Notes: This 139-nucleotide RNA from Xiphophorus maculatus belongs to the Rfam family "Small nucleolar RNA SNORA79". ACA65 (SNORA79) is a member of the H/ACA class of snoRNAs that guide the sites of modification of uridines to pseudouridines. This snoRNA was identified by computational screening and its expression in mouse experimentally verified by Northern blot and primer extension analysis. The match comes from Rfam's covariance-model search (67 bits). Lineage of the source: Eukaryota > Teleostei > Osteoglossocephalai > Eurypterygia > Xiphophorus.
RNA sequence: CGCCGGCGGUUCCUCUUCCUGUUUGCAGCCCAGCAGGAGGAUUUACGCCGUCGCAGAGAAACCGGGUCGUUUUCACCCGGGAAGCUCCGGGCUCUGGCCCAAACCCAACAGCUUCCCGGUUUUGCGGGACCCGACAAUC
Numbered sequence: 001c002g003c004c005g006g007c008g009g010u011u012c013c014u015c016u017u018c019c020u021g022u023u024u025g026c027a028g029c030c031c032a033g034c035a036g037g038a039g040g041a042u043u044u045a046c047g048c049c050g051u052c053g054c055a056g057a058g059a060a061a062c063c064g065g066g067u068c069g070u071u072u073u074c075a076c077c078c079g080g081g082a083a084g085c086u087c088c089g090g091g092c093u094c095u096g097g098c099c100c101a102a103a104c105c106c107a108a109c110a111g112c113u114u115c116c117c118g119g120u121u122u123u124g125c126g127g128g129a130c131c132c133g134a135c136a137a138u139c
Stems, first nucleotide, its partner, number of pairs: 001053002004050005014041005020035004065131004070126001077119010090106002093103001